[Rfam]
A member of the RNA family "Bacterial RNase P class A" from Mesorhizobium sp. 8, 410 nucleotides long. A search with the family's covariance model found it, with a score of 295 bits. It is annotated as a ribozyme.
RNA sequence: CCAGCCGGCCGGGCGGCCGCAUCCGCGACAGCCGAAAGGCUGCGGAUGAGGAAAGUCCGGGCUCCAUGGAGACACGGUGCCGGCUAACGGCCGGCGGGGGCGACCCCAGGGAAAGUGCCACAGAAAGCAAACCGCCAUGCCCGUCCUCCGGGGCGACGCGUGGCAAGGGUGAAAGGGUGGGGUAAGAGCCCACCGCGCGACCGGAAACGGGAGCGGCACGGCAAACCCCACCGGGAGCAAAACCGAAUAGGGGCGGUGCGAGGGGCAACCCUCGGGGCUGUUUCCGGCCCAGCCGUCCGGGUAGGUUGCGUGAGGCGCGCAGCAAUGCGCGUCCAAGAUGAAUGGCCGCCACGUUCCUGUCUGCAAGGGCAGGGGCCAUACAGAACCCGGCUUACAGGCCGGCUGGCAUU
Numbered sequence: 001c002c003a004g005c006c007g008g009c010c011g012g013g014c015g016g017c018c019g020c021a022u023c024c025g026c027g028a029c030a031g032c033c034g035a036a037a038g039g040c041u042g043c044g045g046a047u048g049a050g051g052a053a054a055g056u057c058c059g060g061g062c063u064c065c066a067u068g069g070a071g072a073c074a075c076g077g078u079g080c081c082g083g084c085u086a087a088c089g090g091c092c093g094g095c096g097g098g099g100g101c102g103a104c105c106c107c108a109g110g111g112a113a114a115g116u117g118c119c120a121c122a123g124a125a126a127g128c129a130a131a132c133c134g135c136c137a138u139g140c141c142c143g144u145c146c147u148c149c150g151g152g153g154c155g156a157c158g159c160g161u162g163g164c165a166a167g168g169g170u171g172a173a174a175g176g177g178u179g180g181g182g183u184a185a186g187a188g189c190c191c192a193c194c195g196c197g198c199g200a201c202c203g204g205a206a207a208c209g210g211g212a213g214c215g216g217c218a219c220g221g222c223a224a225a226c227c228c229c230a231c232c233g234g235g236a237g238c239a240a241a242a243c244c245g246a247a248u249a250g251g252g253g254c255g256g257u258g259c260g261a262g263g264g265g266c267a268a269c270c271c272u273c274g275g276g277g278c279u280g281u282u283u284c285c286g287g288c289c290c291a292g293c294c295g296u297c298c299g300g301g302u303a304g305g306u307u308g309c310g311u312g313a314g315g316c317g318c319g320c321a322g323c324a325a326u327g328c329g330c331g332u333c334c335a336a337g338a339u340g341a342a343u344g345g346c347c348g349c350c351a352c353g354u355u356c357c358u359g360u361c362u363g364c365a366a367g368g369g370c371a372g373g374g375g376c377c378a379u380a381c382a383g384a385a386c387c388c389g390g391c392u393u394a395c396a397g398g399c400c401g402g403c404u405g406g407c408a409u410u
Stems, first nucleotide, its partner, number of pairs: 001406010011395001012350007020048008053393003057390005062237004071283002075233005080094005095109001096107004110228002115226002117222003132168002134164007176194006195217001196215003201210003241307004251298006275290005314333008